[Rfam]
A member of the RNA family "MIR4371 microRNA precursor family" from Glycine max, 158 nucleotides long. Gene Ontology terms of the family: miRNA-mediated post-transcriptional gene silencing and RISC complex. Taxonomically the source falls in Glycine subgen. Soja (Eukaryota, Viridiplantae, Streptophytina, Tracheophyta). The family's consensus secondary structure was predicted with RNAalifold. It scores 125 bits against the family's covariance model.
RNA sequence: CUGUUAAGUGAUGACGUAGUAGACGAAGUGUCAUAUCAUCAUGUUCAAUUAUUGACACGUCAGUGCUACAUCAUUGAAGAUGAUGAAAUGAUAAUGGGGUGUUUGUGGUAAGGCUUGAUAAUGUGACAUUCCGUUUGUUACGUUAUCACUUAACAGAA
Numbered sequence: 001c002u003g004u005u006a007a008g009u010g011a012u013g014a015c016g017u018a019g020u021a022g023a024c025g026a027a028g029u030g031u032c033a034u035a036u037c038a039u040c041a042u043g044u045u046c047a048a049u050u051a052u053u054g055a056c057a058c059g060u061c062a063g064u065g066c067u068a069c070a071u072c073a074u075u076g077a078a079g080a081u082g083a084u085g086a087a088a089u090g091a092u093a094a095u096g097g098g099g100u101g102u103u104u105g106u107g108g109u110a111a112g113g114c115u116u117g118a119u120a121a122u123g124u125g126a127c128a129u130u131c132c133g134u135u136u137g138u139u140a141c142g143u144u145a146u147c148a149c150u151u152a153a154c155a156g157a158a
Stems, first nucleotide, its partner, number of pairs: 001156025027130010038119004043114003048109005054103005071086004
Dot-bracket structure: (((((((((((((((((((((((((.((((((((((.((((.(((..(((((.(((((............((((........))))............))))).)))))..))).)))).)))))))))).)))))))))))))))))))))))))..